[Rfam]
Rfam assigns this 511-nucleotide part of an RNA from Tigriopus californicus to the family "Eukaryotic large subunit ribosomal RNA". The family is grouped with related families in Rfam's "LSU clan".
RNA sequence: CCUUCCGAAGUUUCCCUCAGGAUAGCUGGUGCUCGUUAUCGAGUUUCAUCCGGUAAAGCGAAUGAUUAGAAGCCUUGGGGACGAAACGUCCUCAACUUAUUCUCAAACUUUAAAUGGGUGAGAUGUGUGACUUGCUUGAGUGAAGCCACACAACGAAUCGGAGUGCCAAGUGGGCCAUUUUUGGUAAGCAGAACUGGCGCUGUGGGAUGAACCAAACCGUCGGGUUAAAGUGCCAAAGUGGGCGCUCAUCAGAUCCCAUGAAAGGUGUUGGUUGCUUAAGACAGCAGGACGGUGGCCAUGGAAGUCGGAAUCCGCUAAGGAGUGUGUAACAACUCACCUGCCGAAGCAACUAGCCCUGAAAAUGGAUGGCGCUAAAGCGCCCCACUUAUACCCGACCGUUGCGGCAGAGCAGACCCAUUGUGGUCCUCACGCCGCAACGAGUAGGAAGGUCGCAGGGGUGGCGCGGAAGGCUCUGAGAGUGAUCUUGGCUGGAGCCGCCCCUGGUGCAGAU
Numbered sequence: 001c002c003u004u005c006c007g008a009a010g011u012u013u014c015c016c017u018c019a020g021g022a023u024a025g026c027u028g029g030u031g032c033u034c035g036u037u038a039u040c041g042a043g044u045u046u047c048a049u050c051c052g053g054u055a056a057a058g059c060g061a062a063u064g065a066u067u068a069g070a071a072g073c074c075u076u077g078g079g080g081a082c083g084a085a086a087c088g089u090c091c092u093c094a095a096c097u098u099a100u101u102c103u104c105a106a107a108c109u110u111u112a113a114a115u116g117g118g119u120g121a122g123a124u125g126u127g128u129g130a131c132u133u134g135c136u137u138g139a140g141u142g143a144a145g146c147c148a149c150a151c152a153a154c155g156a157a158u159c160g161g162a163g164u165g166c167c168a169a170g171u172g173g174g175c176c177a178u179u180u181u182u183g184g185u186a187a188g189c190a191g192a193a194c195u196g197g198c199g200c201u202g203u204g205g206g207a208u209g210a211a212c213c214a215a216a217c218c219g220u221c222g223g224g225u226u227a228a229a230g231u232g233c234c235a236a237a238g239u240g241g242g243c244g245c246u247c248a249u250c251a252g253a254u255c256c257c258a259u260g261a262a263a264g265g266u267g268u269u270g271g272u273u274g275c276u277u278a279a280g281a282c283a284g285c286a287g288g289a290c291g292g293u294g295g296c297c298a299u300g301g302a303a304g305u306c307g308g309a310a311u312c313c314g315c316u317a318a319g320g321a322g323u324g325u326g327u328a329a330c331a332a333c334u335c336a337c338c339u340g341c342c343g344a345a346g347c348a349a350c351u352a353g354c355c356c357u358g359a360a361a362a363u364g365g366a367u368g369g370c371g372c373u374a375a376a377g378c379g380c381c382c383c384a385c386u387u388a389u390a391c392c393c394g395a396c397c398g399u400u401g402c403g404g405c406a407g408a409g410c411a412g413a414c415c416c417a418u419u420g421u422g423g424u425c426c427u428c429a430c431g432c433c434g435c436a437a438c439g440a441g442u443a444g445g446a447a448g449g450u451c452g453c454a455g456g457g458g459u460g461g462c463g464c465g466g467a468a469g470g471c472u473c474u475g476a477g478a479g480u481g482a483u484c485u486u487g488g489c490u491g492g493a494g495c496c497g498c499c500c501c502u503g504g505u506g507c508a509g510a511u
Stems, first nucleotide, its partner, number of pairs: 001449006011024001013022003027168007044123008056111001057109002063105003068100001070098003075095006082088001125151005131145003174198004179193005203214003219396005225390001229386003238383001240382001243379003263357003267354010284341005290314003296308002315319001320335001324333002397439009451506001453503010469490002476485003
The organism belongs to Tigriopus, within Eukaryota. The match comes from Rfam's covariance-model search (2981 bits).